Notes: The record is a 177-nucleotide sequence from Oryza sativa, which matches "MIR807 microRNA precursor family" in Rfam. The base pairs follow the family's consensus structure, which was predicted with WAR. Rfam links the family to the GO terms RISC complex and miRNA-mediated post-transcriptional gene silencing.

RNA sequence: UUUGAUAGUGUAGAAUGAAUGGAUUCACCCGCGAUAUGACGUGACUGUUUCACCUAGGACGAGAACAUGGCAUCCUAUUAUCAACCAUCGCACGAAAUUAAUAGGAUGCCGCGUCCUCAUCUUAGAUGGAACAACCACGUCAUCUCACGGAUAAAUCCAUUUAUCGAUAGUGUGGUU
Numbered sequence: 001u002u003u004g005a006u007a008g009u010g011u012a013g014a015a016u017g018a019a020u021g022g023a024u025u026c027a028c029c030c031g032c033g034a035u036a037u038g039a040c041g042u043g044a045c046u047g048u049u050u051c052a053c054c055u056a057g058g059a060c061g062a063g064a065a066c067a068u069g070g071c072a073u074c075c076u077a078u079u080a081u082c083a084a085c086c087a088u089c090g091c092a093c094g095a096a097a098u099u100a101a102u103a104g105g106a107u108g109c110c111g112c113g114u115c116c117u118c119a120u121c122u123u124a125g126a127u128g129g130a131a132c133a134a135c136c137a138c139g140u141c142a143u144c145u146c147a148c149g150g151a152u153a154a155a156u157c158c159a160u161u162u163a164u165c166g167a168u169a170g171u172g173u174g175g176u177u
Stems, first nucleotide, its partner, number of pairs: 003175001005173003009169003013165001015164002018161003022157004027152001029150001031148001033146002036143005042137002046133004052127001055124002058121002065114002070109011087098002